[Rfam]
RNA sequence: GCUGGGAGUGGUGGCGCGCUCCUGUAAUCCCGCUACUGGGAGGCUUAGAAUUGAGGAUGCUUUGAGGACGGGAGUCCUGCUGCCUAGUGGCCUAUGUUGACUGGGCGUCCACACUAAGCCUGGCAUCAACAUGGUGACCUUGGAGGAAUCCGAGGCCAGCAGGUUGGCUAAGGAAGGGUGUACCGGGCCAGGGGGGAAACCCAGCAGCCAAAAGCCCUCGUGUUGGGCAGUAGUGGGAUCGCGCCCGGGAGUAGGUGCUUUGUGGCAGCCCGUGCAAUACAAGCAGACCAAUUCUUUU
Numbered sequence: 001g002c003u004g005g006g007a008g009u010g011g012u013g014g015c016g017c018g019c020u021c022c023u024g025u026a027a028u029c030c031c032g033c034u035a036c037u038g039g040g041a042g043g044c045u046u047a048g049a050a051u052u053g054a055g056g057a058u059g060c061u062u063u064g065a066g067g068a069c070g071g072g073a074g075u076c077c078u079g080c081u082g083c084c085u086a087g088u089g090g091c092c093u094a095u096g097u098u099g100a101c102u103g104g105g106c107g108u109c110c111a112c113a114c115u116a117a118g119c120c121u122g123g124c125a126u127c128a129a130c131a132u133g134g135u136g137a138c139c140u141u142g143g144a145g146g147a148a149u150c151c152g153a154g155g156c157c158a159g160c161a162g163g164u165u166g167g168c169u170a171a172g173g174a175a176g177g178g179u180g181u182a183c184c185g186g187g188c189c190a191g192g193g194g195g196g197a198a199a200c201c202c203a204g205c206a207g208c209c210a211a212a213a214g215c216c217c218u219c220g221u222g223u224u225g226g227g228c229a230g231u232a233g234u235g236g237g238a239u240c241g242c243g244c245c246c247g248g249g250a251g252u253a254g255g256u257g258c259u260u261u262g263u264g265g266c267a268g269c270c271c272g273u274g275c276a277a278u279a280c281a282a283g284c285a286g287a288c289c290a291a292u293u294c295u296u297u298u
Stems, first nucleotide, its partner, number of pairs: 001044003004023007028041003047295007058285005066275001068273005077268007086259004091255005097249001101248008109237002112235005118228009127166004132161002135158002138155007168172001175218005186209003193202003
About this RNA: The record is a 298-nucleotide sequence from Cloeon dipterum, which matches "Metazoan signal recognition particle RNA" in Rfam. The family's RNA type in Rfam is non-coding RNA gene. On this family, see Wild et al., Curr Opin Struct Biol 2002: "Towards the structure of the mammalian signal recognition particle". Rfam's curators write: The signal recognition particle (SRP) is a universally conserved ribonucleoprotein. The base pairs follow the family's consensus structure, which is taken from published work.